[Rfam]
RNA sequence: ACUGGCAUGAUGAUGAUGAUUUCCUUUUGCCGUUUACCCAUCUGAAUGUGUUGAUGUACAUGUUCAAAUCUGAGAUGCCAGU
Numbered sequence: 001a002c003u004g005g006c007a008u009g010a011u012g013a014u015g016a017u018g019a020u021u022u023c024c025u026u027u028u029g030c031c032g033u034u035u036a037c038c039c040a041u042c043u044g045a046a047u048g049u050g051u052u053g054a055u056g057u058a059c060a061u062g063u064u065c066a067a068a069u070c071u072g073a074g075a076u077g078c079c080a081g082u
Stems, first nucleotide, its partner, number of pairs: 001082007
Dot-bracket structure: (((((((....................................................................)))))))

Notes:
Shown here is an 82-nucleotide RNA from Chelonoidis abingdonii, a member of the family "Small nucleolar RNA SNORD87". By type it is a C/D-box small nucleolar RNA. Gene Ontology terms of the family: nucleolus and RNA processing. The pairing is the family consensus, mapped onto this sequence. The match comes from Rfam's covariance-model search (55 bits). A reference for the family is Gogolevskaya et al. (2002), "U87 RNA, a novel C/D box small nucleolar RNA from mammalian cells", Gene. Lineage of the source: Eukaryota > Chordata > Sauria > Testudines > Chelonoidis nigra species complex.